[Rfam]
RNA sequence: UGCCGCGGACGACCGCGGCAUGCAUUCCCACGUGGCGGGACGGCCCGC
Numbered sequence: 001u002g003c004c005g006c007g008g009a010c011g012a013c014c015g016c017g018g019c020a021u022g023c024a025u026u027c028c029c030a031c032g033u034g035g036c037g038g039g040a041c042g043g044c045c046c047g048c
Stems, first nucleotide, its partner, number of pairs: 001020008035048005
Dot-bracket structure: ((((((((....))))))))..............(((((....)))))
A member of the RNA family "Guanidine-II riboswitch aptamer (mini-ykkC)" from Paraburkholderia graminis, 48 nucleotides long. Lineage of the source: Bacteria > Pseudomonadati > Pseudomonadota > Burkholderiaceae > Paraburkholderia graminis.